RNA: Repression of heat shock gene expression (ROSE) element
RNA sequence: CCAGCCGCUGAAGACAGGGCUGGUCUUGCUUGGAGCGCCCGUCUUUCGGCGCUUCCGUACCCAUGUUGCUUCAAGGAGGAUAUGGCUAUGGCAA
Numbered sequence: 001c002c003a004g005c006c007g008c009u010g011a012a013g014a015c016a017g018g019g020c021u022g023g024u025c026u027u028g029c030u031u032g033g034a035g036c037g038c039c040c041g042u043c044u045u046u047c048g049g050c051g052c053u054u055c056c057g058u059a060c061c062c063a064u065g066u067u068g069c070u071u072c073a074a075g076g077a078g079g080a081u082a083u084g085g086c087u088a089u090g091g092c093a094a
Stems, first nucleotide, its partner, number of pairs: 001023006008017002032055008041046001056090004061085007069078003
Dot-bracket structure: ((((((.((......))))))))........((((((((.(....).))))))))((((.(((((((.(((....)))))))))).))))....